Description: The family of this 53-nucleotide RNA sequence from Halostella sp. JP-L12 is "leuA-Halobacteria RNA".
RNA sequence: GUCCGACGGGGAUAGAGUAAGUCGCCACGCGGCGGCUGGUCGAGAAAUUCUCG
Numbered sequence: 001g002u003c004c005g006a007c008g009g010g011g012a013u014a015g016a017g018u019a020a021g022u023c024g025c026c027a028c029g030c031g032g033c034g035g036c037u038g039g040u041c042g043a044g045a046a047a048u049u050c051u052c053g
Stems, first nucleotide, its partner, number of pairs: 020037007
Dot-bracket structure: ...................(((((((....)))))))................
Background
The family's consensus secondary structure is taken from published work.